Annotation:
The family of this 81-nucleotide sequence from Firmicutes bacterium CAG:646 is "ZMP/ZTP riboswitch aptamer (pfl RNA motif)". The match comes from Rfam's covariance-model search (66 bits). The family's consensus secondary structure is taken from published work.

[Rfam]
Nucleotides: 081
Stems, first nucleotide, its partner, number of pairs: 004052009015041002017069005026037004060074003
Number, partner (000 for none) and nucleotide at each position: 001000a002000a003000c004052a005051u006050c007049u008048c009047u010046g011045a012044c013000a014000a015041c016040u017069g018068g019067c020066g021065g022000a023000g024000a025000c026037g027036u028035g029034g030000a031000u032000a033000a034029c035028c036027a037026c038000a039000g040016g041015g042000g043000a044012g045011u046010c047009a048008g049007a050006g051005a052004u053000u054000u055000g056000u057000g058000a059000a060074g061073c062072c063000g064000a065021c066020c067019g068018u069017c070000u071000g072062g073061g074060c075000a076000g077000u078000a079000u080000u081000u